The record is a 139-nucleotide RNA sequence from Paenibacillus antarcticus, which matches "c-di-AMP riboswitch aptamer (ydaO/yuaA leader)" in Rfam.
[Rfam]
RNA sequence: UGUACGAAACGGCCUAAUUCCUAAACACCAGGAAGCGGGGGAUCCAUUUUAUGGGUGAAUUGAUCUCGCAACAAAGAGAUCAUAGGGGACCUUCAACCGAAUCCUUAAGCUAACCUCGCAGGCAUUGGAAGGGGAAAAC
Numbered sequence: 001u002g003u004a005c006g007a008a009a010c011g012g013c014c015u016a017a018u019u020c021c022u023a024a025a026c027a028c029c030a031g032g033a034a035g036c037g038g039g040g041g042a043u044c045c046a047u048u049u050u051a052u053g054g055g056u057g058a059a060u061u062g063a064u065c066u067c068g069c070a071a072c073a074a075a076g077a078g079a080u081c082a083u084a085g086g087g088g089a090c091c092u093u094c095a096a097c098c099g100a101a102u103c104c105u106u107a108a109g110c111u112a113a114c115c116u117c118g119c120a121g122g123c124a125u126u127g128g129a130a131g132g133g134g135a136a137a138a139c
Stems, first nucleotide, its partner, number of pairs: 012123003018034005035119006053104003061082007085098002
Background: Rfam 15.1 lists 7,607 matches to the family in 2,262 species.